Purine riboswitch aptamer: a 102-nucleotide RNA from Bacillus sp. THAF10. Lineage of the source: Bacteria > Bacillota > Bacilli > Caryophanales > Bacillus. The match comes from Rfam's covariance-model search (78 bits).
RNA sequence: CAACAGAAUUUAGAUUGACUUCAUAUAUCCUCGAUAAUAAGGUUCGAGAGUCUCUACCGGGUUGCCAUGAACUACCUGACUAUGAAGGCAGUUUUCUAUUAG
Numbered sequence: 001c002a003a004c005a006g007a008a009u010u011u012a013g014a015u016u017g018a019c020u021u022c023a024u025a026u027a028u029c030c031u032c033g034a035u036a037a038u039a040a041g042g043u044u045c046g047a048g049a050g051u052c053u054c055u056a057c058c059g060g061g062u063u064g065c066c067a068u069g070a071a072c073u074a075c076c077u078g079a080c081u082a083u084g085a086a087g088g089c090a091g092u093u094u095u096c097u098a099u100u101a102g
Base pairs, nucleotide, nucleotide: 019087020086021085022084023083024082025081030048031047032046033045034044058078059077060076061075062074064072